[Rfam]
This 252-nucleotide part of an RNA from Trypanosoma brucei belongs to the Rfam family "Eukaryotic large subunit ribosomal RNA". For this family Rfam cites "Crystal structure of the ribosome at 5.5 A resolution" (Yusupov et al., Science, 2001). The base pairs follow the family's consensus structure, which is taken from published work. Lineage of the source: Eukaryota > Discoba > Kinetoplastea > Trypanozoon > Trypanosoma brucei brucei.
RNA sequence: GGAAGUACCUCCAUUUCUUUUUUUUUACGGCCAGACCCAACCUCGCCGCGCAAUUUCCUUCCGGGGCUCAACAUCCGGUGGGUUUUCACUGUGCGGGUUUCUCUUUUGAGGUCAUGGGGUGCGUGAGUGGGCGGAAUAAAGGGUCGGUGUGUUGUGUGUGGGUUUUUUCUCUCACUCUCUUCCUCCUUCCCUGUCCGUGCGUCUCGACGCUGGCGAUGGAAAUGGGGUGCCCCCACCCGUCUUGAAACACGG
Numbered sequence: 001g002g003a004a005g006u007a008c009c010u011c012c013a014u015u016u017c018u019u020u021u022u023u024u025u026u027a028c029g030g031c032c033a034g035a036c037c038c039a040a041c042c043u044c045g046c047c048g049c050g051c052a053a054u055u056u057c058c059u060u061c062c063g064g065g066g067c068u069c070a071a072c073a074u075c076c077g078g079u080g081g082g083u084u085u086u087c088a089c090u091g092u093g094c095g096g097g098u099u100u101c102u103c104u105u106u107u108g109a110g111g112u113c114a115u116g117g118g119g120u121g122c123g124u125g126a127g128u129g130g131g132c133g134g135a136a137u138a139a140a141g142g143g144u145c146g147g148u149g150u151g152u153u154g155u156g157u158g159u160g161g162g163u164u165u166u167u168u169c170u171c172u173c174a175c176u177c178u179c180u181u182c183c184u185c186c187u188u189c190c191c192u193g194u195c196c197g198u199g200c201g202u203c204u205c206g207a208c209g210c211u212g213g214c215g216a217u218g219g220a221a222a223u224g225g226g227g228u229g230c231c232c233c234c235a236c237c238c239g240u241c242u243u244g245a246a247a248c249a250c251g252g
Stems, first nucleotide, its partner, number of pairs: 001234002005230007077214001079212003237252004